[Rfam]
RNA sequence: CUUUGUAUUCUUCCACAGCUUUCUUGAACUGCAUAAUAAUCAGAAAGAAGUUGCUUGUUGUAUGCAUAUUGUAGGUGGAUCUAUCAGAUCUUGGUUAUGCAGUUCAAUAAAGCUGUGGGAAGAUACACUGA
Numbered sequence: 001c002u003u004u005g006u007a008u009u010c011u012u013c014c015a016c017a018g019c020u021u022u023c024u025u026g027a028a029c030u031g032c033a034u035a036a037u038a039a040u041c042a043g044a045a046a047g048a049a050g051u052u053g054c055u056u057g058u059u060g061u062a063u064g065c066a067u068a069u070u071g072u073a074g075g076u077g078g079a080u081c082u083a084u085c086a087g088a089u090c091u092u093g094g095u096u097a098u099g100c101a102g103u104u105c106a107a108u109a110a111a112g113c114u115g116u117g118g119g120a121a122g123a124u125a126c127a128c129u130g131a
Base pairs, nucleotide, nucleotide: 004127005126006125007124013118014117015116017114018113019112020111021110022109024107025106026105027104029102030101031100032099033098034097035096036095037094